Shown here is a 44-nucleotide RNA sequence from Shouchella oshimensis, a member of the family "PreQ1 (pre queuosine) riboswitch aptamer".
[Rfam]
RNA sequence: AAGAAAGAGGUUCGCGAACUCCCUCUAUAAAAAACUAUGCAAGU
Numbered sequence: 001a002a003g004a005a006a007g008a009g010g011u012u013c014g015c016g017a018a019c020u021c022c023c024u025c026u027a028u029a030a031a032a033a034a035c036u037a038u039g040c041a042a043g044u
Stems, first nucleotide, its partner, number of pairs: 006026005016036001
The organism belongs to Shouchella oshimensis, within Bacteria. It scores 48 bits against the family's covariance model. The pairing is the family consensus, mapped onto this sequence.